[Rfam]
RNA: Small nucleolar RNA SNORA65
RNA sequence: CCUGUUACUGCACCUAGCCAGUUCUCUGUUGGCUGAUGCAAUCCAGUGGUAAGCUGAUGGUAAACCCCAGUUUUUAGGAAAACAGGGUUAUUGUUCAUGUGGAUGAUUCUGUUUCAAAAGCAUAGGAAUAGCC
Number, nucleotide and partner (000 for none) at each position: 001c000002c000003u000004g000005u049006u048007a047008c046009u045010g044011c000012a000013c000014c000015u000016a000017g037018c000019c035020a034021g033022u031023u000024c000025u000026c000027u000028g000029u000030u000031g022032g000033c021034u020035g019036a000037u017038g000039c000040a000041a000042u000043c000044c010045a009046g008047u007048g006049g005050u000051a000052a000053g000054c000055u000056g000057a000058u000059g000060g000061u000062a000063a000064a000065c126066c125067c000068c000069a123070g121071u120072u119073u118074u000075u000076a000077g000078g115079a114080a000081a000082a000083c111084a110085g109086g108087g107088u106089u000090a000091u103092u102093g000094u000095u000096c000097a000098u000099g000100u000101g000102g092103a091104u000105g000106a088107u087108u086109c085110u084111g083112u000113u000114u079115c078116a000117a000118a073119a072120g071121c070122a000123u069124a000125g066126g065127a000128a000129u000130a000131g000132c000133c000